Shown here is a 128-nucleotide sequence from Sodalis-like endosymbiont of Proechinophthirus fluctus, a member of the family "Enterobacteria greA leader".
Pairs were carried over by alignment from the consensus structure, which is taken from published work.
The organism belongs to Sodalis, within Bacteria.
The match comes from Rfam's covariance-model search (96 bits).
Gene Ontology term of the family: regulation of gene expression.
[Rfam]
RNA sequence: GUCACACUACGGUGCAAACAGGGAUAAAGUAAACGAUGACCCACACCGAACUCUGCGGUAAAAUACGCAUCAAAAUGCAAAACUGAGGCUGGUCGGCCUGGGAAGCAAUUCCGGGGCCGCUUCCUUUU
Numbered sequence: 001g002u003c004a005c006a007c008u009a010c011g012g013u014g015c016a017a018a019c020a021g022g023g024a025u026a027a028a029g030u031a032a033a034c035g036a037u038g039a040c041c042c043a044c045a046c047c048g049a050a051c052u053c054u055g056c057g058g059u060a061a062a063a064u065a066c067g068c069a070u071c072a073a074a075a076u077g078c079a080a081a082a083c084u085g086a087g088g089c090u091g092g093u094c095g096g097c098c099u100g101g102g103a104a105g106c107a108a109u110u111c112c113g114g115g116g117c118c119g120c121u122u123c124c125u126u127u128u
Stems, first nucleotide, its partner, number of pairs: 001040004010035002014030002041048001057071003092121001094119006101112002